[Rfam]
RNA sequence: AAAGGUGAAACGCCACUGUGUCAAAUAAUUCUCACCAGGAUGGGGGCUCUGUUUACCUGCAACCCUCGGCCACAAUGAAUGUUGUUCUACGAGCUACAUUGUGGUACCGCUGCU
Numbered sequence: 001a002a003a004g005g006u007g008a009a010a011c012g013c014c015a016c017u018g019u020g021u022c023a024a025a026u027a028a029u030u031c032u033c034a035c036c037a038g039g040a041u042g043g044g045g046g047c048u049c050u051g052u053u054u055a056c057c058u059g060c061a062a063c064c065c066u067c068g069g070c071c072a073c074a075a076u077g078a079a080u081g082u083u084g085u086u087c088u089a090c091g092a093g094c095u096a097c098a099u100u101g102u103g104g105u106a107c108c109g110c111u112g113c114u
Stems, first nucleotide, its partner, number of pairs: 004036005015026001042067005069105009081094003
RNA: Methylobacterium-1 RNA